[Rfam]
RNA sequence: ACCUCCCUAUAAUGCGCCCGUACUUAAUGAUUAGGAAUUCCUUUUUGUAAGAAUUUAUUCUUAUUAAGUAUUAUGUUGUGUUUGCAUAUUGUUCGGGAAACCGAACUCAAGUAACUUAAUUUUAGUUACUUAUUUUAACUUCCUGUAUAUUUUAAACCUAAAUUUGGGUUCGUAAUGCACCGCUCUUUGAGCGGUGUUUUUUUCU
Numbered sequence: 001a002c003c004u005c006c007c008u009a010u011a012a013u014g015c016g017c018c019c020g021u022a023c024u025u026a027a028u029g030a031u032u033a034g035g036a037a038u039u040c041c042u043u044u045u046u047g048u049a050a051g052a053a054u055u056u057a058u059u060c061u062u063a064u065u066a067a068g069u070a071u072u073a074u075g076u077u078g079u080g081u082u083u084g085c086a087u088a089u090u091g092u093u094c095g096g097g098a099a100a101c102c103g104a105a106c107u108c109a110a111g112u113a114a115c116u117u118a119a120u121u122u123u124a125g126u127u128a129c130u131u132a133u134u135u136u137a138a139c140u141u142c143c144u145g146u147a148u149a150u151u152u153u154a155a156a157c158c159u160a161a162a163u164u165u166g167g168g169u170u171c172g173u174a175a176u177g178c179a180c181c182g183c184u185c186u187u188u189g190a191g192c193g194g195u196g197u198u199u200u201u202u203u204c205u
Base pairs, nucleotide, nucleotide: 009064010063011062012061016059025057026056028052031050032049033048035046036045037044091106092105093104094103095102096101110130111129112128113127114126115125148174149173150172177197178196179195180194181193182192183191
RNA: GcvB RNA
Organism: Pasteurella bettyae